RNA sequence: AUGGAGACAUGGCCUAAAGCCAGAGACAGUGAGACACGUGAAUUUUAGGCUGUCACUUGAAUCGAUUCACAUCUCAUUUU
Number, nucleotide and partner (000 for none) at each position: 001a000002u000003g000004g075005a074006g073007a072008c000009a000010u022011g021012g020013c019014c000015u000016a000017a000018a000019g013020c012021c011022a010023g000024a000025g000026a000027c000028a000029g070030u069031g068032a067033g000034a000035c000036a000037c000038g000039u000040g000041a000042a000043u000044u000045u000046u000047a000048g000049g000050c000051u000052g000053u000054c000055a000056c000057u000058u000059g000060a000061a000062u000063c000064g000065a000066u000067u032068c031069a030070c029071a000072u007073c006074u005075c004076a000077u000078u000079u000080u000
Shown here is an 80-nucleotide RNA from Bison bison, a member of the family "ctgf/hcs24 CAESAR". Rfam 15.1 lists 518 matches to the family in 508 species. Rfam's curators write: The 3' UTR of human connective tissue growth factor/hypertrophic chondrocyte specific 24 (ctgf/hcs24) mRNA has been shown to repress ctgf gene expression. Reference identified a minimal RNA element, predicted to form a stable secondary structure, which acts as a post-transcriptional cis-acting element of structure-anchored repression (CAESAR), probably through direct interactions with as yet unknown nuclear factors. Rfam links the family to the GO term negative regulation of gene expression. The base pairs follow the family's consensus structure, which is taken from published work.